[Rfam]
RNA sequence: ACACAUUAUAAUUAAAUUGUUACACAACAUUUAAUUGGAGAGGGAGCUGAUCCUAUGGGUACAAUUAUUUGUCAGGAUUGUCAGGAGAUUAUUGAACACUUUGAAGGGGAAAAAGUAACAACACUGUAUGGCACAUGCCAGGGAUGUAACGCGGAAUAAAGAAAGCGCAUACUUAUUUGAGGAUUGCUUAUUAAAUAAUACAGACCCGCAUACUAAUGUAUGCGGGUCCUUUUAA
Numbered sequence: 001a002c003a004c005a006u007u008a009u010a011a012u013u014a015a016a017u018u019g020u021u022a023c024a025c026a027a028c029a030u031u032u033a034a035u036u037g038g039a040g041a042g043g044g045a046g047c048u049g050a051u052c053c054u055a056u057g058g059g060u061a062c063a064a065u066u067a068u069u070u071g072u073c074a075g076g077a078u079u080g081u082c083a084g085g086a087g088a089u090u091a092u093u094g095a096a097c098a099c100u101u102u103g104a105a106g107g108g109g110a111a112a113a114a115g116u117a118a119c120a121a122c123a124c125u126g127u128a129u130g131g132c133a134c135a136u137g138c139c140a141g142g143g144a145u146g147u148a149a150c151g152c153g154g155a156a157u158a159a160a161g162a163a164a165g166c167g168c169a170u171a172c173u174u175a176u177u178u179g180a181g182g183a184u185u186g187c188u189u190a191u192u193a194a195a196u197a198a199u200a201c202a203g204a205c206c207c208g209c210a211u212a213c214u215a216a217u218g219u220a221u222g223c224g225g226g227u228c229c230u231u232u233u234a235a
Base pairs, nucleotide, nucleotide: 016116017115020113021112025108030105031104032103033102034101037100038099040097056091057090058089060087062085068083142174143173197233198232200230203228204227205226206225207224208223209222210221
The record is a 235-nucleotide RNA from Oceanobacillus picturae, which matches "SR1 sRNA" in Rfam. The literature on the family includes a 2007 paper in Nucleic Acids Res by Heidrich et al., "In vitro analysis of the interaction between the small RNA SR1 and its primary target ahrC mRNA". NCBI's taxonomy places the organism under Bacteria, Bacillota, Caryophanales, Bacillaceae, Oceanobacillus. A search with the family's covariance model found it, with a score of 49 bits. The family's RNA type in Rfam is small RNA. Gene Ontology terms of the family: translation repressor activity, mRNA regulatory element binding and negative regulation of translational initiation.